Bacterial large subunit ribosomal RNA: a 591-nucleotide part of an RNA from Rhodoblastus acidophilus. NCBI's taxonomy places the organism under Bacteria, Pseudomonadati, Alphaproteobacteria, Hyphomicrobiales, Rhodoblastus.
RNA sequence: GUCAAAAGGGCAUUCGGUGGAUGCCUUGGCGCUAAGAGGCGAUGAAGGACGUGGUACGCUGCGAUAAGUCUUGGGGAGCUGCGAACGAGCUUUGAUCCGAGAAUUUCCGAAUGGGGCAACCCACCUUCGACCUCUAUUAUUCCAAAGGGUUUUGUCCUGCCGCACAGGUGGGGUGAAACGUGAUGCGCAAGCGUCCUUUUGGACUAAUAGGGGUCAUAUGGAGGUAUCAAACUCUGUCAUGGGGUUUGAAGCAAACCCGGGGAACUGAAACAUCUAAGUACCCGGAGGAAAGGACAUCAACGAGACUCCGUUAGUAGUGGCGAGCGAACGCGGACCAGGCCAGUGCUUGUGAUUUUUUAACCGGAACGACUUGGAACAGUCGGCCUGAGUGGGUGAAAGCCCCGUACGGAUUUCGAAGAUCACGAGCCUUGAGUAGGGCGGGACACGUGCAAUCCUGUCUGAACAUGGGGAGACCACUCUCCAAGCCUAAGUACUCCUUAGCGACCGAUAGCGAACAAGUACCGUGAGGGAAAGGUGAAAAGCACCCCGACGAGGGGAGUGAAACAGUUCCUGAAACCGGAUGCCUACAAA
Numbered sequence: 001g002u003c004a005a006a007a008g009g010g011c012a013u014u015c016g017g018u019g020g021a022u023g024c025c026u027u028g029g030c031g032c033u034a035a036g037a038g039g040c041g042a043u044g045a046a047g048g049a050c051g052u053g054g055u056a057c058g059c060u061g062c063g064a065u066a067a068g069u070c071u072u073g074g075g076g077a078g079c080u081g082c083g084a085a086c087g088a089g090c091u092u093u094g095a096u097c098c099g100a101g102a103a104u105u106u107c108c109g110a111a112u113g114g115g116g117c118a119a120c121c122c123a124c125c126u127u128c129g130a131c132c133u134c135u136a137u138u139a140u141u142c143c144a145a146a147g148g149g150u151u152u153u154g155u156c157c158u159g160c161c162g163c164a165c166a167g168g169u170g171g172g173g174u175g176a177a178a179c180g181u182g183a184u185g186c187g188c189a190a191g192c193g194u195c196c197u198u199u200u201g202g203a204c205u206a207a208u209a210g211g212g213g214u215c216a217u218a219u220g221g222a223g224g225u226a227u228c229a230a231a232c233u234c235u236g237u238c239a240u241g242g243g244g245u246u247u248g249a250a251g252c253a254a255a256c257c258c259g260g261g262g263a264a265c266u267g268a269a270a271c272a273u274c275u276a277a278g279u280a281c282c283c284g285g286a287g288g289a290a291a292g293g294a295c296a297u298c299a300a301c302g303a304g305a306c307u308c309c310g311u312u313a314g315u316a317g318u319g320g321c322g323a324g325c326g327a328a329c330g331c332g333g334a335c336c337a338g339g340c341c342a343g344u345g346c347u348u349g350u351g352a353u354u355u356u357u358u359a360a361c362c363g364g365a366a367c368g369a370c371u372u373g374g375a376a377c378a379g380u381c382g383g384c385c386u387g388a389g390u391g392g393g394u395g396a397a398a399g400c401c402c403c404g405u406a407c408g409g410a411u412u413u414c415g416a417a418g419a420u421c422a423c424g425a426g427c428c429u430u431g432a433g434u435a436g437g438g439c440g441g442g443a444c445a446c447g448u449g450c451a452a453u454c455c456u457g458u459c460u461g462a463a464c465a466u467g468g469g470g471a472g473a474c475c476a477c478u479c480u481c482c483a484a485g486c487c488u489a490a491g492u493a494c495u496c497c498u499u500a501g502c503g504a505c506c507g508a509u510a511g512c513g514a515a516c517a518a519g520u521a522c523c524g525u526g527a528g529g530g531a532a533a534g535g536u537g538a539a540a541a542g543c544a545c546c547c548c549g550a551c552g553a554g555g556g557g558a559g560u561g562a563a564a565c566a567g568u569u570c571c572u573g574a575a576a577c578c579g580g581a582u583g584c585c586u587a588c589a590a591a
Stems, first nucleotide, its partner, number of pairs: 008586010023571001024535002028506002030503007037495002039252002047108003050063003069102007078090003113122003123225007227249009256287001257285005267274002297303002306491001307334005317325002337488004347425011359413001361409003367382005385389001391403003436460008467482005522529002545557004